[Rfam]
RNA: skipping-rope RNA
RNA sequence: UUAUUUUGAGGUCGGAAAUGGUUCCCGAUACACUCCAUUUGAAGUACCUGAGAUGCUGGAUGAACCGCCCAGCCCCCAAUAUAU
Number, nucleotide and partner (000 for none) at each position: 001u000002u083003a082004u081005u079006u078007u000008g077009a000010g000011g029012u028013c027014g026015g025016a000017a000018a000019u067020g066021g065022u064023u063024c000025c015026c014027g013028a012029u011030a000031c050032a045033c044034u043035c000036c000037a000038u000039u000040u000041g000042a000043a034044g033045u032046a000047c000048c000049u000050g031051a000052g000053a000054u000055g073056c072057u071058g070059g069060a000061u000062g000063a023064a022065c021066c020067g019068c000069c059070c058071a057072g056073c055074c000075c000076c000077c008078a006079a005080u000081a004082u003083a002084u000